[Rfam]
RNA sequence: UAGUAUUGUUGUAACGAACUCCGCUGUUAUUCUACUGUGUUUUGCAAGUGUGCAGUUUUGUUGUAGCUGCAUGAAAAUAUUGUCUCGCUAUUUGCGGGUUUGAAGGCAGAGCGUACCCAGAGCAGGGGCGUAAAUUGUUACUUUCUGCAAUCAAAACAACA
Numbered sequence: 001u002a003g004u005a006u007u008g009u010u011g012u013a014a015c016g017a018a019c020u021c022c023g024c025u026g027u028u029a030u031u032c033u034a035c036u037g038u039g040u041u042u043u044g045c046a047a048g049u050g051u052g053c054a055g056u057u058u059u060g061u062u063g064u065a066g067c068u069g070c071a072u073g074a075a076a077a078u079a080u081u082g083u084c085u086c087g088c089u090a091u092u093u094g095c096g097g098g099u100u101u102g103a104a105g106g107c108a109g110a111g112c113g114u115a116c117c118c119a120g121a122g123c124a125g126g127g128g129c130g131u132a133a134a135u136u137g138u139u140a141c142u143u144u145c146u147g148c149a150a151u152c153a154a155a156a157c158a159a160c161a
Stems, first nucleotide, its partner, number of pairs: 001082007009074001013041003049073009084098005106148005112130003116127003
Tombusvirus 5' UTR: a 161-nucleotide sequence. A reference for the family is Wu et al. (2001), "An RNA domain within the 5' untranslated region of the tomato bushy stunt virus genome modulates viral RNA replication", J Mol Biol. By type it is a cis-regulatory element. From the family's description: Tomato bushy stunt virus is the prototype member of the Tombusviridae family. In addition to viral proteins p33 and the RNA-dependent RNA polymerase p92, and unknown host factors, RNA signals within the UTRs are necessary for genome replication. 2 RNA domains in the 5' UTR have been reported, a 5' T-shaped domain (TSD) followed by a stem-loop (SL5) and a downstream domain (DSD). These domains are combined into a single family here. Reference proposes that TSD-DSD interactions are involved in the mediation of viral RNA replication.